The record is a 72-nucleotide RNA from Phytophthora kernoviae, which matches "Mitochondrion-encoded tmRNA" in Rfam. Its Rfam clan is "tRNA clan". Its family is annotated with RNA catabolic process in the Gene Ontology. A search with the family's covariance model found it, with a score of 74 bits.

Nucleotides: 072
Base pairs, nucleotide, nucleotide: 001072002071003070004069005068006067010026011025012024013023027052028051029050030049031048032047033046
Number, partner (000 for none) and nucleotide at each position: 001072a002071a003070a004069a005068u006067g007000g008000a009000c010026c011025c012024a013023a014000a015000g016000g017000c018000a019000g020000u021000a022000g023013u024012u025011g026010g027052u028051a029050u030049u031048u032047c033046c034000a035000a036000a037000a038000u039000a040000u041000u042000u043000a044000u045000a046033g047032g048031g049030a050029a051028u052027a053000a054000u055000a056000u057000u058000a059000u060000g061000u062000a063000u064000u065000g066000a067006c068005a069004u070003u071002u072001u